[Rfam]
RNA: Mammalian CPEB3 ribozyme
Organism: Crocodylus porosus
Nucleotides: 072
Stems, first nucleotide, its partner, number of pairs: 008040001010039004016072007023035002044061002047058004
Number, partner (000 for none) and nucleotide at each position: 001000c002000g003000u004000g005000u006000u007000u008040u009000a010039g011038g012037c013036c014000a015000c016072a017071g018070c019069a020068g021067a022066g023035g024034c025000a026000u027000u028000c029000a030000u031000g032000a033000c034024g035023u036013g037012g038011c039010c040008a041000a042000g043000u044061c045060a046000a047058a048057u049056u050055c051000c052000a053000g054000a055050g056049a057048a058047u059000c060045u061044g062000u063000a064000a065000a066022u067021u068020c069019u070018g071017c072016u